[Rfam]
Description: The family of this 67-nucleotide RNA sequence from Dechloromonas sp. HYN0024 is "int-alpA RNA". Lineage of the source: Bacteria > Pseudomonadati > Pseudomonadota > Betaproteobacteria > Dechloromonas. Acidobacteria (1 example), Planctomycetes (1 example), Proteobacteria.

RNA sequence: CUGCCCCCUAGUCCGGCCAGACGAACAGCGGACACCUUCACCGCUUGGGGGCGGCACCUGAUGAAGG
Numbered sequence: 001c002u003g004c005c006c007c008c009u010a011g012u013c014c015g016g017c018c019a020g021a022c023g024a025a026c027a028g029c030g031g032a033c034a035c036c037u038u039c040a041c042c043g044c045u046u047g048g049g050g051g052c053g054g055c056a057c058c059u060g061a062u063g064a065a066g067g
Stems, first nucleotide, its partner, number of pairs: 001054008011022003028044004035067005